RNA sequence: CAGCCCCAUCUCAAUUUUCAAAUUGGACUUGGGCCUUUAUUGGUCAUUCAAACGGGGCAAAAGAAAUACCCUUUUAAAACUCAGGCAAACUGUGUUUGUCUUGUACCAGAGGAAAUAAAC
Numbered sequence: 001c002a003g004c005c006c007c008a009u010c011u012c013a014a015u016u017u018u019c020a021a022a023u024u025g026g027a028c029u030u031g032g033g034c035c036u037u038u039a040u041u042g043g044u045c046a047u048u049c050a051a052a053c054g055g056g057g058c059a060a061a062a063g064a065a066a067u068a069c070c071c072u073u074u075u076a077a078a079a080c081u082c083a084g085g086c087a088a089a090c091u092g093u094g095u096u097u098g099u100c101u102u103g104u105a106c107c108a109g110a111g112g113a114a115a116u117a118a119a120c
Stems, first nucleotide, its partner, number of pairs: 033058004040051004070112005082103001083101008
Rfam assigns this 120-nucleotide RNA sequence from Erinaceus europaeus to the family "Small nucleolar RNA SNORA27".
ACA27 is a member of the H/ACA class of snoRNA that guide the sites of modification of uridines to pseudouridines.
Its family is annotated with nucleolus and RNA processing in the Gene Ontology.
It is annotated as an H/ACA-box small nucleolar RNA.
Lineage of the source: Eukaryota > Bilateria > Craniata > Euteleostomi > Erinaceus.
The pairing is the family consensus, mapped onto this sequence.